[Rfam]
RNA sequence: CUCACAUUGUGUAAAUAACACACACGUAUCGGCACAUGCGCCGGGGUGCCUGAAAGCGGUUUGCGCUUUUCGGGUCGGCGUUAUGGGAUACGUGGAGGCAUAAC
Numbered sequence: 001c002u003c004a005c006a007u008u009g010u011g012u013a014a015a016u017a018a019c020a021c022a023c024a025c026g027u028a029u030c031g032g033c034a035c036a037u038g039c040g041c042c043g044g045g046g047u048g049c050c051u052g053a054a055a056g057c058g059g060u061u062u063g064c065g066c067u068u069u070u071c072g073g074g075u076c077g078g079c080g081u082u083a084u085g086g087g088a089u090a091c092g093u094g095g096a097g098g099c100a101u102a103a104c
Base pairs, nucleotide, nucleotide: 023094024093025092026091027090028089029088030087035085036084037083038082040079041078042077043076048075049074050073051072052071053070054069055068056067